[Rfam]
Background: Rfam assigns this 153-nucleotide RNA from Polypterus senegalus to the family "U1 spliceosomal RNA". It is annotated as a spliceosomal small nuclear RNA.
RNA sequence: AUACUUACCACGCAGGAGAUACCAUGAUCACUAGGUGGUUCUCCCAGGGCGAGGCUCAUCCAUUGCACUCGGGUGUGCUGACCCCUGCGAUUUCCCCAAAUCGGGAAACUCGACUGCAUAAUUUGUGGUAGGGGGACUGGUUCGCUCUCCCUG
Numbered sequence: 001a002u003a004c005u006u007a008c009c010a011c012g013c014a015g016g017a018g019a020u021a022c023c024a025u026g027a028u029c030a031c032u033a034g035g036u037g038g039u040u041c042u043c044c045c046a047g048g049g050c051g052a053g054g055c056u057c058a059u060c061c062a063u064u065g066c067a068c069u070c071g072g073g074u075g076u077g078c079u080g081a082c083c084c085c086u087g088c089g090a091u092u093u094c095c096c097c098a099a100a101u102c103g104g105g106a107a108a109c110u111c112g113a114c115u116g117c118a119u120a121a122u123u124u125g126u127g128g129u130a131g132g133g134g135g136a137c138u139g140g141u142u143c144g145c146u147c148u149c150c151c152u153g
Stems, first nucleotide, its partner, number of pairs: 012117004016043004021039005046086004051082001053079003057075005088112003091108003095104002132152005139146002